[Rfam]
RNA sequence: ACGAGCGCCCCGGGAGAGACCCCCGGAUGCUGCGUGGGGCGCCGUAGGAGCAAACCCCUCCCCGGGAAACUCUCAGGCACCUGCACCGGGACGCUCGG
Numbered sequence: 001a002c003g004a005g006c007g008c009c010c011c012g013g014g015a016g017a018g019a020c021c022c023c024c025g026g027a028u029g030c031u032g033c034g035u036g037g038g039g040c041g042c043c044g045u046a047g048g049a050g051c052a053a054a055c056c057c058c059u060c061c062c063c064g065g066g067a068a069a070c071u072c073u074c075a076g077g078c079a080c081c082u083g084c085a086c087c088g089g090g091a092c093g094c095u096c097g098g
Stems, first nucleotide, its partner, number of pairs: 006093002009090005020039004041078003044074001048072003055065002

Notes:
The family of this 98-nucleotide RNA from Kocuria coralli is "Glycine riboswitch aptamer". The organism belongs to Kocuria, within Bacteria.